Annotation: This 74-nucleotide RNA from gamma proteobacterium HIMB55 belongs to the Rfam family "tRNA". By type it is a transfer RNA. Lineage of the source: Bacteria > Pseudomonadati > Gammaproteobacteria > Cellvibrionales > Halieaceae.
[Rfam]
RNA sequence: GCGCCCAUAGCACAACCGGAUAGUGCAGCCGCCUUCUAAGCGGCAGGUUCCAGGUUCGAGUCCUGGUGGGCGCG
Number, nucleotide and partner (000 for none) at each position: 001g073002c072003g071004c070005c069006c068007a067008u000009a000010g026011c025012a024013c023014a000015a000016c000017c000018g000019g000020a000021u000022a000023g013024u012025g011026c010027a000028g044029c043030c042031g041032c040033c000034u000035u000036c000037u000038a000039a000040g032041c031042g030043g029044c028045a000046g000047g000048u000049u000050c066051c065052a064053g063054g062055u000056u000057c000058g000059a000060g000061u000062c054063c053064u052065g051066g050067u007068g006069g005070g004071c003072g002073c001074g000